[Rfam]
The record is a 108-nucleotide RNA sequence from Syntrophobotulus glycolicus, which matches "Guanidine-I riboswitch aptamer" in Rfam. The match comes from Rfam's covariance-model search (82 bits). The organism belongs to Syntrophobotulus glycolicus, within Bacteria.
RNA sequence: GCGAAUGCCUUCUAGGGUUCCGCGGAAUGUAUUGCUUACUUCCGGGCUGGUCCAAGAGGAGGCGCGUGCCGAUCGGCGCGUACACGGAGGGAAAAAAACCCGGGAGGU
Numbered sequence: 001g002c003g004a005a006u007g008c009c010u011u012c013u014a015g016g017g018u019u020c021c022g023c024g025g026a027a028u029g030u031a032u033u034g035c036u037u038a039c040u041u042c043c044g045g046g047c048u049g050g051u052c053c054a055a056g057a058g059g060a061g062g063c064g065c066g067u068g069c070c071g072a073u074c075g076g077c078g079c080g081u082a083c084a085c086g087g088a089g090g091g092a093a094a095a096a097a098a099c100c101c102g103g104g105a106g107g108u
Stems, first nucleotide, its partner, number of pairs: 007063006015053002020050002022047001023044005064081007083103001085106001089101003